[Rfam]
RNA sequence: CCGCACUCCAACAUGGAGGCACUUGCUGGAACACGACAGAAAUAAGUGCUUCCAUGUUUGAGUGCGG
Number, nucleotide and partner (000 for none) at each position: 001c067002c066003g065004c000005a063006c062007u061008c060009c000010a058011a057012c056013a055014u054015g053016g052017a051018g050019g049020c048021a047022c046023u045024u044025g043026c000027u041028g000029g000030a000031a000032c000033a000034c000035g000036a000037c000038a000039g000040a000041a027042a000043u025044a024045a023046g022047u021048g020049c019050u018051u017052c016053c015054a014055u013056g012057u011058u010059u000060g008061a007062g006063u005064g000065c003066g002067g001
Rfam assigns this 67-nucleotide sequence from Fukomys damarensis to the family "mir-302 microRNA precursor family".
A search with the family's covariance model found it, with a score of 58 bits.
Taxonomically the source falls in Fukomys (Eukaryota, Metazoa, Glires, Hystricomorpha).
The literature on the family includes a 2004 paper in Dev Biol by Suh et al., "Human embryonic stem cells express a unique set of microRNAs".
Rfam 15.1 lists 2,090 matches to the family in 516 species.
The family's consensus secondary structure was predicted with RNAalifold.